[Rfam]
RNA sequence: GUUCCCUGUGAUGUUUGUAAGUCUGAUGACCAUGCUAAUUCUGAUCAAUCUGUGAUUGAAUCUUUAUUUACUUGUUUUUCUGAGGGAACA
Numbered sequence: 001g002u003u004c005c006c007u008g009u010g011a012u013g014u015u016u017g018u019a020a021g022u023c024u025g026a027u028g029a030c031c032a033u034g035c036u037a038a039u040u041c042u043g044a045u046c047a048a049u050c051u052g053u054g055a056u057u058g059a060a061u062c063u064u065u066a067u068u069u070a071c072u073u074g075u076u077u078u079u080c081u082g083a084g085g086g087a088a089c090a
Base pairs, nucleotide, nucleotide: 001089002088003087004086005085006084007083